About this RNA
Shown here is a 103-nucleotide sequence from Anaerovirgula multivorans, a member of the family "SAM riboswitch aptamer (S box leader)". Gene Ontology term of the family: regulation of gene expression. The SAM riboswitch is found upstream of a number of genes which code for proteins involved in methionine or cysteine biosynthesis in Gram-positive bacteria. It scores 98 bits against the family's covariance model.
[Rfam]
RNA sequence: CUCUUAUCUAGAGAGGCGGAGGGACUGGCCCUAUGAAGCCCGGCAACCACGAUCAUCAUCGAAGGUGCCAAUUCCAGCAGCACAAAGUGCUGAAAGAUAAGGG
Numbered sequence: 001c002u003c004u005u006a007u008c009u010a011g012a013g014a015g016g017c018g019g020a021g022g023g024a025c026u027g028g029c030c031c032u033a034u035g036a037a038g039c040c041c042g043g044c045a046a047c048c049a050c051g052a053u054c055a056u057c058a059u060c061g062a063a064g065g066u067g068c069c070a071a072u073u074c075c076a077g078c079a080g081c082a083c084a085a086a087g088u089g090c091u092g093a094a095a096g097a098u099a100a101g102g103g
Stems, first nucleotide, its partner, number of pairs: 001103008013041001015040003021031003025077004042069004047065002050061004073095001078092006